Source information: Rfam assigns this 93-nucleotide sequence from Mastacembelus armatus to the family "Small nucleolar SNORD12/SNORD106". By type it is a C/D-box small nucleolar RNA. Lineage of the source: Eukaryota > Deuterostomia > Craniata > Vertebrata > Mastacembelus. For this family Rfam cites "RNomics: an experimental approach that identifies 201 candidates for novel, small, non-messenger RNAs in mouse" (Huttenhofer et al., EMBO J, 2001). The family's consensus secondary structure was predicted with RNAalifold. The match comes from Rfam's covariance-model search (52 bits).
[Rfam]
RNA sequence: CAUGUGGUUAAUGAUGCACUCUUUUUUUCCCCGUCUUAUCGACUGUGGUGAAAAAAAAAUGGACACUAAGCCAGUUGUGUCUGAAACCACAUA
Numbered sequence: 001c002a003u004g005u006g007g008u009u010a011a012u013g014a015u016g017c018a019c020u021c022u023u024u025u026u027u028u029c030c031c032c033g034u035c036u037u038a039u040c041g042a043c044u045g046u047g048g049u050g051a052a053a054a055a056a057a058a059a060u061g062g063a064c065a066c067u068a069a070g071c072c073a074g075u076u077g078u079g080u081c082u083g084a085a086a087c088c089a090c091a092u093a
Stems, first nucleotide, its partner, number of pairs: 002092008